[Rfam]
RNA sequence: CUAACUCAAAUUUAUAUGGAUUUGGAACAGCGCCCCCUAGCGGCAAAUGAAGGGAAGCUGUUCCAACUCCAUACAAAUUUGAGUUA
Numbered sequence: 001c002u003a004a005c006u007c008a009a010a011u012u013u014a015u016a017u018g019g020a021u022u023u024g025g026a027a028c029a030g031c032g033c034c035c036c037c038u039a040g041c042g043g044c045a046a047a048u049g050a051a052g053g054g055a056a057g058c059u060g061u062u063c064c065a066a067c068u069c070c071a072u073a074c075a076a077a078u079u080u081g082a083g084u085u086a
Stems, first nucleotide, its partner, number of pairs: 008080006015073002018070001020068001022066008034054003